[Rfam]
RNA sequence: CUCAAUCCUUCCUUUACUCGGAUCGUCCGGCACGUUCCUGCCGGUGAAGGGAUACACAU
Numbered sequence: 001c002u003c004a005a006u007c008c009u010u011c012c013u014u015u016a017c018u019c020g021g022a023u024c025g026u027c028c029g030g031c032a033c034g035u036u037c038c039u040g041c042c043g044g045u046g047a048a049g050g051g052a053u054a055c056a057c058a059u
Stems, first nucleotide, its partner, number of pairs: 010051007027044006

The record is a 59-nucleotide RNA from Streptomyces laurentii, which matches "msiK RNA" in Rfam. The family's RNA type in Rfam is cis-regulatory element. NCBI's taxonomy places the organism under Bacteria, Bacillati, Actinomycetota, Actinomycetes, Streptomyces. The base pairs follow the family's consensus structure, which is taken from published work.